[Rfam]
Rfam assigns this 45-nucleotide RNA sequence from Nicoletella semolina to the family "PreQ1 (pre queuosine) riboswitch aptamer". This family is a bacterial riboswitch that binds to the metabolite preQ1, an intermediate in the biosynthesis of the modified nucleoside queuosine from GTP. One example of this riboswitch is located in the leader of the Bacillus subtilis ykvJKLM (queCDEF) operon which encodes four genes necessary for queuosine production. The base pairs follow the family's consensus structure. The match comes from Rfam's covariance-model search (54 bits). Gene Ontology term of the family: queuosine biosynthetic process. For this family Rfam cites "Structural Insights into riboswitch control of the biosynthesis of queuosine, a modified nucleotide found in the anticodon of tRNA" (Kang et al., Mol Cell, 2009).
RNA sequence: UCAACCGUGGUUCGCAACCCUCCCACGCAAAAAAACUAAGGAUAC
Number, nucleotide and partner (000 for none) at each position: 001u000002c000003a000004a000005c000006c027007g026008u025009g024010g023011u000012u000013c000014g000015c000016a037017a000018c000019c000020c000021u000022c000023c010024c009025a008026c007027g006028c000029a000030a000031a000032a000033a000034a000035a000036c000037u016038a000039a000040g000041g000042a000043u000044a000045c000